Rfam assigns this 130-nucleotide sequence from Moschus moschiferus to the family "Small nucleolar RNA SNORA11". It scores 87 bits against the family's covariance model. The family's RNA type in Rfam is H/ACA-box small nucleolar RNA. About the family: U107 (SNORA11) is a member of the H/ACA class of snoRNAs that guide the sites of modification of uridines to pseudouridines. This snoRNA was identified by RT-PCR from blood cells and its expression confirmed by Northern blot analysis. On this family, see Gu et al., Nucleic Acids Res 2005: "A novel experimental approach for systematic identification of box H/ACA snoRNAs from eukaryotes".
RNA sequence: GGGGUAUGUUCACAGCCGGGGGCCUGAAGAAAUGGCUCGUCUCUACAACACACCCAAUGGGAAUUUGGGUUCUUUGUGAAGAGGGGUACAAAACUCGUGUGGCCUUGCUAUGAACAAAUACCCAACACAU
Numbered sequence: 001g002g003g004g005u006a007u008g009u010u011c012a013c014a015g016c017c018g019g020g021g022g023c024c025u026g027a028a029g030a031a032a033u034g035g036c037u038c039g040u041c042u043c044u045a046c047a048a049c050a051c052a053c054c055c056a057a058u059g060g061g062a063a064u065u066u067g068g069g070u071u072c073u074u075u076g077u078g079a080a081g082a083g084g085g086g087u088a089c090a091a092a093a094c095u096c097g098u099g100u101g102g103c104c105u106u107g108c109u110a111u112g113a114a115c116a117a118a119u120a121c122c123c124a125a126c127a128c129a130u
Stems, first nucleotide, its partner, number of pairs: 002055004007050002015044001018041002021038001022036003068123002071120001075116003081111001083105003087101004